[Rfam]
This 114-nucleotide RNA sequence from Panagrellus redivivus belongs to the Rfam family "Potassium channel RNA editing signal".
The family has 85 seed sequences and 14,095 matches in Rfam 15.1.
The family's RNA type in Rfam is cis-regulatory element.
Pairs were carried over by alignment from the consensus structure, which is taken from published work.
This family represents a group of sequences related to the human potassium channel Kv1.1 hairpin element which directs the efficient modification of an adenosine to inosine by an adenosine deaminase acting on RNA (ADAR). The ADAR modification causes an isoleucine/valine recoding event which lies in the ion-conducting pore of the potassium channel. It is thought that this editing event targets the process of fast inactivation and allows a more rapid recovery from inactivation at negative potentials.
Rfam links the family to the GO term adenosine to inosine editing.
RNA sequence: AUUGGAUUUCGUUUUCAGGUACCUAGAACCUACCCUGGUAUGCUGGUGGGUUCAUUGUGCGCAUUAAUGGGAGUACUUACGAUCGCAUUGCCGGUGCCCGUUAUUGUGGCCAAU
Numbered sequence: 001a002u003u004g005g006a007u008u009u010c011g012u013u014u015u016c017a018g019g020u021a022c023c024u025a026g027a028a029c030c031u032a033c034c035c036u037g038g039u040a041u042g043c044u045g046g047u048g049g050g051u052u053c054a055u056u057g058u059g060c061g062c063a064u065u066a067a068u069g070g071g072a073g074u075a076c077u078u079a080c081g082a083u084c085g086c087a088u089u090g091c092c093g094g095u096g097c098c099c100g101u102u103a104u105u106g107u108g109g110c111c112a113a114u
Base pairs, nucleotide, nucleotide: 001114002113004111005110007108009106011104016100019097020096021095022094037077038076039075040074050062051061